[Rfam]
RNA sequence: GCAGACUCACUCUGUUCUUUGCUGCUCACUCCAGCCUAGAACUUUUUCUGUCUGCUACAUGAGCAUGCAGAAUGUAACACUUGACUGGCUUUCUCAAAGGCCGGUGUCACUAUGUUCUGCUACAUUACG
Numbered sequence: 001g002c003a004g005a006c007u008c009a010c011u012c013u014g015u016u017c018u019u020u021g022c023u024g025c026u027c028a029c030u031c032c033a034g035c036c037u038a039g040a041a042c043u044u045u046u047u048c049u050g051u052c053u054g055c056u057a058c059a060u061g062a063g064c065a066u067g068c069a070g071a072a073u074g075u076a077a078c079a080c081u082u083g084a085c086u087g088g089c090u091u092u093c094u095c096a097a098a099g100g101c102c103g104g105u106g107u108c109a110c111u112a113u114g115u116u117c118u119g120c121u122a123c124a125u126u127a128c129g
Stems, first nucleotide, its partner, number of pairs: 001055006014042005022034003067120005072113002074110002077107003082103002085100002
Notes:
The record is a 129-nucleotide sequence from Larimichthys crocea, which matches "Small nucleolar RNA SNORA77" in Rfam. The base pairs follow the family's consensus structure, which was predicted with RNAalifold. Rfam links the family to the GO terms nucleolus and RNA processing. About the family: ACA63 (SNORA77) is a member of the H/ACA class of snoRNAs that guide the sites of modification of uridines to pseudouridines. This snoRNA was identified by computational screening and its expression in mouse experimentally verified by Northern blot and primer extension analysis. ACA63 is proposed to guide the pseudouridylation of 18S rRNA U814. The literature on the family includes a 2006 paper in RNA by Schattner et al., "A computational screen for mammalian pseudouridylation guide H/ACA RNAs".